[Rfam]
RNA sequence: GUUUAGCCCUGAUGGAAGUGAUAUCCUUUUUUGUUCCCGAUUCUACUCAAACUAACAAAAAAGAUAAAACGAACAGCAGGAACACCG
Numbered sequence: 001g002u003u004u005a006g007c008c009c010u011g012a013u014g015g016a017a018g019u020g021a022u023a024u025c026c027u028u029u030u031u032u033g034u035u036c037c038c039g040a041u042u043c044u045a046c047u048c049a050a051a052c053u054a055a056c057a058a059a060a061a062a063g064a065u066a067a068a069a070c071g072a073a074c075a076g077c078a079g080g081a082a083c084a085c086c087g
Stems, first nucleotide, its partner, number of pairs: 009079003013075002018070002023065003029060007
Annotation:
A member of the RNA family "Flavo-1 RNA" from Flavobacterium haoranii, 87 nucleotides long. The base pairs follow the family's consensus structure, which is taken from published work. It is annotated as a small RNA.